[Rfam]
RNA sequence: UUUUUGCGUUAAGGAUUGUAGUGAAAAUCCUUUUUGGCGAUUUUUCUUCGCCAAAAAGAUUGUAACGGAAAGCCUGACCCCGA
Numbered sequence: 001u002u003u004u005u006g007c008g009u010u011a012a013g014g015a016u017u018g019u020a021g022u023g024a025a026a027a028u029c030c031u032u033u034u035u036g037g038c039g040a041u042u043u044u045u046c047u048u049c050g051c052c053a054a055a056a057a058g059a060u061u062g063u064a065a066c067g068g069a070a071a072g073c074c075u076g077a078c079c080c081c082g083a
Stems, first nucleotide, its partner, number of pairs: 012075003016071002021066002026061004032056008